The family of this 142-nucleotide RNA sequence from Piaya cayana is "Small nucleolar RNA SNORA12". Gene Ontology terms of the family: RNA processing and nucleolus. U108 belongs to the H/ACA family of snoRNAs. The sequence is predicted to guide the pseudouridylation of the U372 residue in the 28S rRNA subunit. However it has not been reported as a pseudouridylation site. The literature on the family includes a 2005 paper in Nucleic Acids Res by Gu et al., "A novel experimental approach for systematic identification of box H/ACA snoRNAs from eukaryotes". By type it is an H/ACA-box small nucleolar RNA.
RNA sequence: UAUUGUGGUGGUUCCCAUAUUUGGCAGUUCUGUAAUUGUAGCAGAGCGGCCCUAGGCUACCACAGAGAUCAGAAAGGAGAAGGUGGUGCUGAGAACUUUUUCGAGCUUUCAGUUUUCAGCUUCUUGUUCAGCUCCUACAGAA
Numbered sequence: 001u002a003u004u005g006u007g008g009u010g011g012u013u014c015c016c017a018u019a020u021u022u023g024g025c026a027g028u029u030c031u032g033u034a035a036u037u038g039u040a041g042c043a044g045a046g047c048g049g050c051c052c053u054a055g056g057c058u059a060c061c062a063c064a065g066a067g068a069u070c071a072g073a074a075a076g077g078a079g080a081a082g083g084u085g086g087u088g089c090u091g092a093g094a095a096c097u098u099u100u101u102c103g104a105g106c107u108u109u110c111a112g113u114u115u116u117c118a119g120c121u122u123c124u125u126g127u128u129c130a131g132c133u134c135c136u137a138c139a140g141a142a
Base pairs, nucleotide, nucleotide: 005063006062007061008060009059010058011057023051024050025049027047028046029045030044031043032042076135077134078133079132102126103125104124105123
Dot-bracket structure: ....(((((((...........(((.((((((.........)))))).))).....)))))))............((((......................((((.................)))).....)))).......